Source information
A member of the RNA family "Small nucleolar RNA snR31" from Saccharomyces mikatae, 223 nucleotides long. The organism belongs to Saccharomyces mikatae, within Eukaryota. The family is grouped with related families in Rfam's "SNORA8 clan".
RNA sequence: GAAGCAAGAUUGGACCAUGAGUUCCUAUUAACGUCAGCCUUCUUUUUCCCAUAAGGACGGUUUCAGAUGUUUGAUAGGCGUUGCUUCAGUACGUACGACUCAUGGCAGAUUAAUUUAUUAGAAAGAUGUAUCUCCAGCUGUUGAUCUUAGAGGGGGAAGCCUUUCUCUUUCACCUCGCCUUUUUAAACACCUGAUACAGUUGGUCAUGAUUCGUUCUACAUUU
Dot-bracket structure: ..............((((((((.((((((((((((((((....((........))...))))...)))).))))))))(((((........)).)))))))))))..............((((.((.......((((((((........((((.(((((.......))))).))))...................)))))))).......)).))))......
Numbered sequence: 001g002a003a004g005c006a007a008g009a010u011u012g013g014a015c016c017a018u019g020a021g022u023u024c025c026u027a028u029u030a031a032c033g034u035c036a037g038c039c040u041u042c043u044u045u046u047u048c049c050c051a052u053a054a055g056g057a058c059g060g061u062u063u064c065a066g067a068u069g070u071u072u073g074a075u076a077g078g079c080g081u082u083g084c085u086u087c088a089g090u091a092c093g094u095a096c097g098a099c100u101c102a103u104g105g106c107a108g109a110u111u112a113a114u115u116u117a118u119u120a121g122a123a124a125g126a127u128g129u130a131u132c133u134c135c136a137g138c139u140g141u142u143g144a145u146c147u148u149a150g151a152g153g154g155g156g157a158a159g160c161c162u163u164u165c166u167c168u169u170u171c172a173c174c175u176c177g178c179c180u181u182u183u184u185a186a187a188c189a190c191c192u193g194a195u196a197c198a199g200u201u202g203g204u205c206a207u208g209a210u211u212c213g214u215u216c217u218a219c220a221u222u223u
Stems, first nucleotide, its partner, number of pairs: 015105008024078008032069004036062004044055002079097003082093002120217004125212002134203008150176004155171005